Source information:
tRNA: a 71-nucleotide RNA from Lodderomyces parapsilosis. It scores 64 bits against the family's covariance model. The base pairs follow the family's consensus structure, which is taken from published work. Rfam describes the family as follows. Transfer RNA (tRNA) molecules are approximately 80 nucleotides in length. Lineage of the source: Eukaryota > Opisthokonta > Dikarya > Saccharomycotina > Lodderomyces.
[Rfam]
RNA sequence: GGACGAUUGGUGUAGUGGUAACAUAAUUGCCUUCCAAGCAAUUGCCGUGGGUUCGAUUCCCGCAUCGUUCA
Numbered sequence: 001g002g003a004c005g006a007u008u009g010g011u012g013u014a015g016u017g018g019u020a021a022c023a024u025a026a027u028u029g030c031c032u033u034c035c036a037a038g039c040a041a042u043u044g045c046c047g048u049g050g051g052u053u054c055g056a057u058u059c060c061c062g063c064a065u066c067g068u069u070c071a
Base pairs, nucleotide, nucleotide: 001070002069003068004067005066006065007064010024011023012022013021026042027041028040029039030038047063048062049061050060051059
Dot-bracket structure: (((((((..((((.......)))).(((((.......)))))....(((((.......)))))))))))).